[Rfam]
Rfam assigns this 31-nucleotide RNA sequence from Sipha flava to the family "Iron response element II". The family has 30 seed sequences and 5,197 matches in Rfam 15.1. From the family's description: IRE, TFRC, SLC40A1, SDHB, SLC11A2, CDC42BPA, ACO2, ALAS2_H.SAPIENS, CDC14A, EPAS1, ALAS2, qoxD, Hao1, NDUFS1, transferrin, Aconitate. By type it is a cis-regulatory element. The organism belongs to Sipha, within Eukaryota. Gene Ontology term of the family: response to iron ion.
RNA sequence: UGAUUUUCAGAAGCAGUGGCUUCUAAAAUUU
Numbered sequence: 001u002g003a004u005u006u007u008c009a010g011a012a013g014c015a016g017u018g019g020c021u022u023c024u025a026a027a028a029u030u031u
Base pairs, nucleotide, nucleotide: 002030003029004028005027006026007025009024010023011022012021013020014018